The record is a 92-nucleotide RNA from Buxus microphylla, which matches "Plastid-rps12 3UTR RNA" in Rfam. Pairs were carried over by alignment from the consensus structure, which was predicted with LocARNA.
[Rfam]
RNA sequence: GGUUUCCAUUGGUGCAACCCCAAUCACCUCAAUUUGAGAUGAGAAGCAAUUCCCCAGUGGUAGCAAAAGAUUAUCCAUUAAGCGGGGGAAUA
Numbered sequence: 001g002g003u004u005u006c007c008a009u010u011g012g013u014g015c016a017a018c019c020c021c022a023a024u025c026a027c028c029u030c031a032a033u034u035u036g037a038g039a040u041g042a043g044a045a046g047c048a049a050u051u052c053c054c055c056a057g058u059g060g061u062a063g064c065a066a067a068a069g070a071u072u073a074u075c076c077a078u079u080a081a082g083c084g085g086g087g088g089a090a091u092a
Stems, first nucleotide, its partner, number of pairs: 009023004052087004056078001059075005
Rfam classes the family as a cis-regulatory element. The organism belongs to Buxus, within Eukaryota. Rfam describes the family as follows. Plastid rpl20 is a non-coding RNA (ncRNA) recognised in plastids. It was found in the three prime untranslated region (3UTR) of rps12 gene, its 3UTR location sugest a role in transcript maduration.